The record is a 145-nucleotide RNA from Pollutimonas bauzanensis, which matches "FMN riboswitch aptamer (RFN element)" in Rfam. The match comes from Rfam's covariance-model search (117 bits). Taxonomically the source falls in Pollutimonas (Bacteria, Betaproteobacteria, Burkholderiales, Alcaligenaceae). Pairs were carried over by alignment from the consensus structure, which is taken from published work.

[Rfam]
RNA sequence: UCACGUCUUCAGGGCGGGGUGAAAAUCCCCACCGGCGGUAAGUCCAGCGGUGGACGAGCCCGCGAGCGCUUGCGAUUCCGCAAGGUCAGCAGAUCUGGUGCGAUGCCAGAGCCGACGGUUACAGUCCGGAUGAGAGAAGAUGUCG
Numbered sequence: 001u002c003a004c005g006u007c008u009u010c011a012g013g014g015c016g017g018g019g020u021g022a023a024a025a026u027c028c029c030c031a032c033c034g035g036c037g038g039u040a041a042g043u044c045c046a047g048c049g050g051u052g053g054a055c056g057a058g059c060c061c062g063c064g065a066g067c068g069c070u071u072g073c074g075a076u077u078c079c080g081c082a083a084g085g086u087c088a089g090c091a092g093a094u095c096u097g098g099u100g101c102g103a104u105g106c107c108a109g110a111g112c113c114g115a116c117g118g119u120u121a122c123a124g125u126c127c128g129g130a131u132g133a134g135a136g137a138a139g140a141u142g143u144c145g
Stems, first nucleotide, its partner, number of pairs: 003143008017029003031125002033114002035063004058112002066090002094110005116128003